[Rfam]
RNA sequence: AUAGUCUCGUCGGGGUGCCUUCGGGCUGAGAGGCGGCUGAAACCGCCAACCCGCGGAACCUGAACCGGGUCAUGCCGGCGGAGGAAGCGAGAUGUGCAGGUAU
Numbered sequence: 001a002u003a004g005u006c007u008c009g010u011c012g013g014g015g016u017g018c019c020u021u022c023g024g025g026c027u028g029a030g031a032g033g034c035g036g037c038u039g040a041a042a043c044c045g046c047c048a049a050c051c052c053g054c055g056g057a058a059c060c061u062g063a064a065c066c067g068g069g070u071c072a073u074g075c076c077g078g079c080g081g082a083g084g085a086a087g088c089g090a091g092a093u094g095u096g097c098a099g100g101u102a103u
Stems, first nucleotide, its partner, number of pairs: 006091005011053004017026003033046004059084003065078004
Dot-bracket structure: .....(((((((((..(((....)))......((((......))))...)))).....(((...((((......))))...)))..)))))............

TPP riboswitch aptamer (THI element): a 103-nucleotide RNA sequence from bacterium YEK0313.